[Rfam]
RNA sequence: UAACCAUCAUCAUCAUCCUGAUUAGUCUUUCAGGCUGCUGUGUGCUGGAAGACAUUUGACCCGUCUUCCGGUGGCAUGAAUAUGAUGAAAAACCCUCGGAAGAUUUUCCGGGGGUUUUUUUAU
Numbered sequence: 001u002a003a004c005c006a007u008c009a010u011c012a013u014c015a016u017c018c019u020g021a022u023u024a025g026u027c028u029u030u031c032a033g034g035c036u037g038c039u040g041u042g043u044g045c046u047g048g049a050a051g052a053c054a055u056u057u058g059a060c061c062c063g064u065c066u067u068c069c070g071g072u073g074g075c076a077u078g079a080a081u082a083u084g085a086u087g088a089a090a091a092a093c094c095c096u097c098g099g100a101a102g103a104u105u106u107u108c109c110g111g112g113g114g115u116u117u118u119u120u121u122a123u
Stems, first nucleotide, its partner, number of pairs: 008044003011040002014037001017034005045071008087120015

The family of this 123-nucleotide RNA sequence from Xenorhabdus japonica is "Histidine operon leader". For this family Rfam cites "Attenuation in amino acid biosynthetic operons" (Kolter and Yanofsky, Annu Rev Genet, 1982). From the family's description: At least 6 amino acid operons are known to be regulated by attenuation. Rfam links the family to the GO term histidine biosynthetic process.